[Rfam]
RNA sequence: AAGAACAAAGAUAAAAACACGUCCCGGUAGGUAGUCCGGGAGCAGCGUAGAUAAACGCUGUCAGUAACCUGCCUCCUUUGGUUGUCCAUUCUUUGUGUAUUAAAG
Numbered sequence: 001a002a003g004a005a006c007a008a009a010g011a012u013a014a015a016a017a018c019a020c021g022u023c024c025c026g027g028u029a030g031g032u033a034g035u036c037c038g039g040g041a042g043c044a045g046c047g048u049a050g051a052u053a054a055a056c057g058c059u060g061u062c063a064g065u066a067a068c069c070u071g072c073c074u075c076c077u078u079u080g081g082u083u084g085u086c087c088a089u090u091c092u093u094u095g096u097g098u099a100u101u102a103a104a105g
Base pairs, nucleotide, nucleotide: 005096006095007094008093009092010091011090022041023040024039025038026037027036042061043060044059045058046057047056071082072081073080

Rfam assigns this 105-nucleotide RNA sequence from Hespellia stercorisuis to the family "azaaromatic riboswitch aptamer (yjdF RNA)". The match comes from Rfam's covariance-model search (91 bits). Pairs were carried over by alignment from the consensus structure, which is taken from published work. Taxonomically the source falls in Hespellia stercorisuis (Bacteria, Bacillota, Lachnospiraceae, Hespellia).